[Rfam]
RNA sequence: GCCUCUUCCCUCAAGCGAGCCUGUAAUCCAGCUACUCGGGAGGCUGAGGCUGGCGGAUCGCUUGAGCUCAGGAGUUCUGGGCUGCAGUGGGCUAUGCCGAUCGGGUGUCCGCACUAAGUUCGGCGUCAAUAUGGUGGGCCGCGGGGAGCCGGGGCUCACCAGGUUGCCUAAGGAGGGGUGAACCGGCCCAGGUCGGAGACGGAGCAGGUCAAAACUCCCGUGCCGAUCAGUAGUGGGACCGCGCCUGUGAAUAGCCGCUGCCGCGUAGCCUGAGCAACACAGCGAGACCCAGGCUCUC
Numbered sequence: 001g002c003c004u005c006u007u008c009c010c011u012c013a014a015g016c017g018a019g020c021c022u023g024u025a026a027u028c029c030a031g032c033u034a035c036u037c038g039g040g041a042g043g044c045u046g047a048g049g050c051u052g053g054c055g056g057a058u059c060g061c062u063u064g065a066g067c068u069c070a071g072g073a074g075u076u077c078u079g080g081g082c083u084g085c086a087g088u089g090g091g092c093u094a095u096g097c098c099g100a101u102c103g104g105g106u107g108u109c110c111g112c113a114c115u116a117a118g119u120u121c122g123g124c125g126u127c128a129a130u131a132u133g134g135u136g137g138g139c140c141g142c143g144g145g146g147a148g149c150c151g152g153g154g155c156u157c158a159c160c161a162g163g164u165u166g167c168c169u170a171a172g173g174a175g176g177g178g179u180g181a182a183c184c185g186g187c188c189c190a191g192g193u194c195g196g197a198g199a200c201g202g203a204g205c206a207g208g209u210c211a212a213a214a215c216u217c218c219c220g221u222g223c224c225g226a227u228c229a230g231u232a233g234u235g236g237g238a239c240c241g242c243g244c245c246u247g248u249g250a251a252u253a254g255c256c257g258c259u260g261c262c263g264c265g266u267a268g269c270c271u272g273a274g275c276a277a278c279a280c281a282g283c284g285a286g287a288c289c290c291a292g293g294c295u296c297u298c
Base pairs, nucleotide, nucleotide: 001016002015027041028040029039046296047295048294050292051291052290053289058285059284060283061282062281066275067274068273069272070271071270072269077268078267079266081264082263084261085260086259087258088257089256091255092254093253094252095251097249102247103246104245105244106243107242108241109237110236112235113234114233115232116231118228120226121225122224123223124222125221126220127166128165129164130163132161133160134159135158136157137156138155139154140153142151143150144149167173168172175218176217177216178215179214185210186209187208188207193202194201195200